RNA: L2-Alphaproteobacteria ribosomal protein leader
RNA sequence: GGGCACCUUCGGGGGCCUAUACCAACGGUCACCUCGCCACACCUAAGACGGUCAGGGCAGGGGGCUAACACAUAGGUCACCCGCCCAUGGGCUGGGGACCACUUGCUAAACGGAAGACAGAAA
Numbered sequence: 001g002g003g004c005a006c007c008u009u010c011g012g013g014g015g016c017c018u019a020u021a022c023c024a025a026c027g028g029u030c031a032c033c034u035c036g037c038c039a040c041a042c043c044u045a046a047g048a049c050g051g052u053c054a055g056g057g058c059a060g061g062g063g064g065c066u067a068a069c070a071c072a073u074a075g076g077u078c079a080c081c082c083g084c085c086c087a088u089g090g091g092c093u094g095g096g097g098a099c100c101a102c103u104u105g106c107u108a109a110a111c112g113g114a115a116g117a118c119a120g121a122a123a
Base pairs, nucleotide, nucleotide: 001018002017003016004015006014007013008012027100028099029098030097032095033094
Dot-bracket structure: ((((.(((...)))))))........((((.((............................................................)).)))).......................